About this RNA
The record is a 60-nucleotide RNA from Medicago truncatula, which matches "MIR2629 microRNA precursor family" in Rfam. Gene Ontology terms of the family: RISC complex and miRNA-mediated post-transcriptional gene silencing. It is one of the family's seed sequences.
RNA sequence: UGCCGAAGUUUUCCUCGGUAGUUAACUUCCAUAAUUCGGCAGUUAACUGCCGAUGAGCAU
Number, nucleotide and partner (000 for none) at each position: 001u000002g000003c000004c000005g000006a000007a000008g000009u000010u000011u000012u056013c055014c000015u053016c052017g051018g050019u049020a048021g047022u046023u045024a044025a043026c042027u041028u000029c039030c000031a000032u000033a000034a000035u000036u000037c000038g000039g029040c000041a027042g026043u025044u024045a023046a022047c021048u020049g019050c018051c017052g016053a015054u000055g013056a012057g000058c000059a000060u000